The record is a 173-nucleotide RNA sequence from Clostridium sp. DSM 8431, which matches "Group II catalytic intron D1-D4-3" in Rfam. Rfam links the family to the GO term Group II intron splicing.
RNA sequence: UUAUUGGCAACGAUAAGGUAUGAAGGAAGCGCUAGAGGACAUAUGGAACAUAACGCAAGUAAACCAAGUAUUGGCUUAUAAAGUGGAUAACCUUGCAAAAAGUAGGAAAGUCCAAAGUUCGGUAGUUACUUUAUAAGUUUUUAUGGAUGUGUUCAUAUGGGGCAGGCAAGCUU
Numbered sequence: 001u002u003a004u005u006g007g008c009a010a011c012g013a014u015a016a017g018g019u020a021u022g023a024a025g026g027a028a029g030c031g032c033u034a035g036a037g038g039a040c041a042u043a044u045g046g047a048a049c050a051u052a053a054c055g056c057a058a059g060u061a062a063a064c065c066a067a068g069u070a071u072u073g074g075c076u077u078a079u080a081a082a083g084u085g086g087a088u089a090a091c092c093u094u095g096c097a098a099a100a101a102g103u104a105g106g107a108a109a110g111u112c113c114a115a116a117g118u119u120c121g122g123u124a125g126u127u128a129c130u131u132u133a134u135a136a137g138u139u140u141u142u143a144u145g146g147a148u149g150u151g152u153u154c155a156u157a158u159g160g161g162g163c164a165g166g167c168a169a170g171c172u173u
Stems, first nucleotide, its partner, number of pairs: 001016006029173001031171003037163001041158006048150004064146003068142001074138003078134007085113004091106003